This 76-nucleotide sequence from Myotis myotis belongs to the Rfam family "mir-9229 microRNA precursor family". The family has 7 seed sequences and 27,225 matches in Rfam 15.1. It scores 72 bits against the family's covariance model.
RNA sequence: GAGACACCCUUCAGGGGCAAUACUUGCUUCAGUAUGGCUUUGGUGCUCAUUGAGUCUACCCCCUGAGUGUGUCCCU
Number, nucleotide and partner (000 for none) at each position: 001g075002a000003g073004a072005c071006a070007c069008c000009c067010u066011u065012c000013a000014g062015g061016g060017g059018c000019a057020a000021u000022a055023c054024u000025u000026g000027c000028u000029u053030c052031a051032g050033u049034a000035u000036g046037g044038c043039u000040u000041u000042g000043g038044u037045g000046c036047u000048c000049a033050u032051u031052g030053a029054g023055u022056c000057u019058a000059c017060c016061c015062c014063c000064u000065g011066a010067g009068u000069g007070u006071g005072u004073c003074c000075c001076u000